[Rfam]
RNA sequence: CGGCCGGGACGACCCGGUCGACGCGCUCGCAGGAGGACGGCCUCG
Numbered sequence: 001c002g003g004c005c006g007g008g009a010c011g012a013c014c015c016g017g018u019c020g021a022c023g024c025g026c027u028c029g030c031a032g033g034a035g036g037a038c039g040g041c042c043u044c045g
Base pairs, nucleotide, nucleotide: 001020002019003018004017005016006015007014008013033044034043035042036041
The record is a 45-nucleotide RNA from Brachybacterium faecium, which matches "Guanidine-II riboswitch aptamer (mini-ykkC)" in Rfam.
The match comes from Rfam's covariance-model search (35 bits).
The family's consensus secondary structure is taken from published work.
Its family is annotated with regulation of gene expression in the Gene Ontology.